[Rfam]
RNA sequence: CCCCUUUCUUUACCGAUAAAGAAAGGGGGCUGCUCUGCUUUGGCAGAGUAGGGUCGUAUCGCUUUAAAAGCAUCGUAUCGCUGACAGGGUAUAAAAACCUGCUUCAGCCAUAUUGCCCGCUCAUGCGCGAUGCACCAAAAAAAAAGCCCUCUUCAGAUGAAGAGGGCUUUUUAGU
Numbered sequence: 001c002c003c004c005u006u007u008c009u010u011u012a013c014c015g016a017u018a019a020a021g022a023a024a025g026g027g028g029g030c031u032g033c034u035c036u037g038c039u040u041u042g043g044c045a046g047a048g049u050a051g052g053g054u055c056g057u058a059u060c061g062c063u064u065u066a067a068a069a070g071c072a073u074c075g076u077a078u079c080g081c082u083g084a085c086a087g088g089g090u091a092u093a094a095a096a097a098c099c100u101g102c103u104u105c106a107g108c109c110a111u112a113u114u115g116c117c118c119g120c121u122c123a124u125g126c127g128c129g130a131u132g133c134a135c136c137a138a139a140a141a142a143a144a145a146g147c148c149c150u151c152u153u154c155a156g157a158u159g160a161a162g163a164g165g166g167c168u169u170u171u172u173a174g175u
Stems, first nucleotide, its partner, number of pairs: 002029002004025009030046004051118004061071003075113003080108004085101004124134003141172014
This 175-nucleotide RNA sequence from Mariprofundus erugo belongs to the Rfam family "Burkholderia sRNA 11". It scores 50 bits against the family's covariance model. Lineage of the source: Bacteria > Pseudomonadati > Pseudomonadota > Mariprofundales > Mariprofundus. Its family is annotated with bacterial biofilm matrix in the Gene Ontology. From the family's description: Identified by RNA-seq, RACE and Northern blot. Strongly expressed in biofilm. Identified in as ncRNA13. By type it is a small RNA.